[Rfam]
RNA sequence: AUACUGACCUGGCAGGGGAGAUAGCGUGAUCACAAAGGUGGUUUUCCCAGUGUGAGGCUUAUCCACUGCACUCCAGAUGUGCUGACCCCUGUGAUUUCCCCAAAUGUGAGAAAUGUGAAUUCAUAAUUUGUGGUAGUGGGGGACUGCAUUCAUGCCCUCCCCUG
Numbered sequence: 001a002u003a004c005u006g007a008c009c010u011g012g013c014a015g016g017g018g019a020g021a022u023a024g025c026g027u028g029a030u031c032a033c034a035a036a037g038g039u040g041g042u043u044u045u046c047c048c049a050g051u052g053u054g055a056g057g058c059u060u061a062u063c064c065a066c067u068g069c070a071c072u073c074c075a076g077a078u079g080u081g082c083u084g085a086c087c088c089c090u091g092u093g094a095u096u097u098c099c100c101c102a103a104a105u106g107u108g109a110g111a112a113a114u115g116u117g118a119a120u121u122c123a124u125a126a127u128u129u130g131u132g133g134u135a136g137u138g139g140g141g142g143a144c145u146g147c148a149u150u151c152a153u154g155c156c157c158u159c160c161c162c163u164g
Stems, first nucleotide, its partner, number of pairs: 012122001014120001016048006023042001025040003049090002052087001054086001056083003060079004092117002095113003100108001138163006146155003
RNA: U1 spliceosomal RNA